[Rfam]
RNA sequence: UACUAAAAAACUCAUCCAUUUGUACUGUUAAAACUGAUGUGACUGACGAAAUAACUAGACAGUGACGUGUCACAUGUACCUCAUGUUGAUGUAAAUGGACCAAUUUUUAACUAGAAAUGGAUAAAAUUUUUAACA
Numbered sequence: 001u002a003c004u005a006a007a008a009a010a011c012u013c014a015u016c017c018a019u020u021u022g023u024a025c026u027g028u029u030a031a032a033a034c035u036g037a038u039g040u041g042a043c044u045g046a047c048g049a050a051a052u053a054a055c056u057a058g059a060c061a062g063u064g065a066c067g068u069g070u071c072a073c074a075u076g077u078a079c080c081u082c083a084u085g086u087u088g089a090u091g092u093a094a095a096u097g098g099a100c101c102a103a104u105u106u107u108u109a110a111c112u113a114g115a116a117a118u119g120g121a122u123a124a125a126a127u128u129u130u131u132a133a134c135a
Base pairs, nucleotide, nucleotide: 004132005131006130007129008128009127012124014122015121016120018118019117020116021115023113024112028110029109030108031107032106033105
Annotation:
The record is a 135-nucleotide RNA from Gossypium hirsutum, which matches "MIR7502 microRNA precursor family" in Rfam. Its family is annotated with RISC complex and miRNA-mediated post-transcriptional gene silencing in the Gene Ontology. The family has 6 seed sequences and 74,505 matches in Rfam 15.1. Pairs were carried over by alignment from the consensus structure, which was predicted with RNAalifold.